This 70-nucleotide RNA from Baxteria australis belongs to the Rfam family "Plastid-clpP 5UTR RNA". A reference for the family is Richter et al. (2023), "Retrograde signaling in plants: A critical review focusing on the GUN pathway and beyond", Plant Commun. The organism belongs to Baxteria, within Eukaryota. Rfam classes the family as a cis-regulatory element. Plastid clpP is a non-coding RNA (ncRNA) recognised in plastids. It was found in the prime untranslated region (5UTR) of a protease complex subunit (clpP) in plastids, suggesting a posible cis-regulatory function.
[Rfam]
RNA sequence: CAAUUCUGUUCGUAAGAACAGAGAGAAGCAAAUCUAUUCUAUACCCGAUAAGUACCAAUACGCAAUGGGA
Numbered sequence: 001c002a003a004u005u006c007u008g009u010u011c012g013u014a015a016g017a018a019c020a021g022a023g024a025g026a027a028g029c030a031a032a033u034c035u036a037u038u039c040u041a042u043a044c045c046c047g048a049u050a051a052g053u054a055c056c057a058a059u060a061c062g063c064a065a066u067g068g069g070a
Base pairs, nucleotide, nucleotide: 004023005022007020008019009018010017011016044069045068046067052061053060054059